Rfam assigns this 137-nucleotide RNA sequence from Varanus komodoensis to the family "Small Cajal body specific RNA 3". From the family's description: scaRNAs are a specific class of small nuclear RNAs which localise to the Cajal bodies and guide the modification of RNA polymerase II transcribed spliceosomal RNAs U1, U2, U4, U5 and U12. Its Rfam clan is "SCARNA3 clan". Pairs were carried over by alignment from the consensus structure, which was predicted with RNAalifold. A search with the family's covariance model found it, with a score of 105 bits. The organism belongs to Varanus, within Eukaryota. Gene Ontology terms of the family: nucleolus, Cajal body and RNA processing.
[Rfam]
RNA sequence: AUUGGAAGCUGAAUAGACCUCUAUUGCAGGCAAAUGAAAUUUCUUUUGUCUGUACUUUCAGCCUUCCUAGAGUAAAGUGAAGGUUUCUGUCUGGAUUAGAGCAGUCGACUGAUCCAGUUCGUUCCCCUUUAUACAUU
Numbered sequence: 001a002u003u004g005g006a007a008g009c010u011g012a013a014u015a016g017a018c019c020u021c022u023a024u025u026g027c028a029g030g031c032a033a034a035u036g037a038a039a040u041u042u043c044u045u046u047u048g049u050c051u052g053u054a055c056u057u058u059c060a061g062c063c064u065u066c067c068u069a070g071a072g073u074a075a076a077g078u079g080a081a082g083g084u085u086u087c088u089g090u091c092u093g094g095a096u097u098a099g100a101g102c103a104g105u106c107g108a109c110u111g112a113u114c115c116a117g118u119u120c121g122u123u124c125c126c127c128u129u130u131a132u133a134c135a136u137u
Base pairs, nucleotide, nucleotide: 004067005066006065008062009061010060011059012058025054026053027052028051029050030049031048036045037044079130080129081128082127083126087121089119091117093115094114095113096112097111098110099109